The record is a 253-nucleotide sequence from Nezara viridula, which matches "Arthropod 7SK RNA" in Rfam.

[Rfam]
RNA sequence: GGAAGUGUGUGUCAGGUGAUGGCACAACUGAACAUUGAUCGUACAUUGAUUUAGUGCAGAUCUGCUCAGUAUAAUGUUAUCACGUGGUUUCUAGUAGCCAAAGCCAACUUCCUGAUGACUUGGCUCUCGGUAGAGAUACGCUUCUGGGCUCCUCGAAUCACCACGGCUGUUUCCAAAUUGGAGUACUCUCCCUCUGUAAUUUCGUCACUUCCAUUACUCGGCACUACACACCACCAUAGUCUGCCUUCUUUUA
Numbered sequence: 001g002g003a004a005g006u007g008u009g010u011g012u013c014a015g016g017u018g019a020u021g022g023c024a025c026a027a028c029u030g031a032a033c034a035u036u037g038a039u040c041g042u043a044c045a046u047u048g049a050u051u052u053a054g055u056g057c058a059g060a061u062c063u064g065c066u067c068a069g070u071a072u073a074a075u076g077u078u079a080u081c082a083c084g085u086g087g088u089u090u091c092u093a094g095u096a097g098c099c100a101a102a103g104c105c106a107a108c109u110u111c112c113u114g115a116u117g118a119c120u121u122g123g124c125u126c127u128c129g130g131u132a133g134a135g136a137u138a139c140g141c142u143u144c145u146g147g148g149c150u151c152c153u154c155g156a157a158u159c160a161c162c163a164c165g166g167c168u169g170u171u172u173c174c175a176a177a178u179u180g181g182a183g184u185a186c187u188c189u190c191c192c193u194c195u196g197u198a199a200u201u202u203c204g205u206c207a208c209u210u211c212c213a214u215u216a217c218u219c220g221g222c223a224c225u226a227c228a229c230a231c232c233a234c235c236a237u238a239g240u241c242u243g244c245c246u247u248c249u250u251u252u253a
Base pairs, nucleotide, nucleotide: 001212002211003210004209005208006207007206016083017082018081019080020079028069029068030067033064034063037062038061039060040059041057042056043055044054220245221244222243223240224239225238226237
Overview
Its Rfam clan is "7SK clan". The literature on the family includes a 2008 paper in Mol Biol Evol by Gruber et al., "Arthropod 7SK RNA". Pairs were carried over by alignment from the consensus structure, which is taken from published work. NCBI's taxonomy places the organism under Eukaryota, Panarthropoda, Mandibulata, Pentatomidae, Nezara.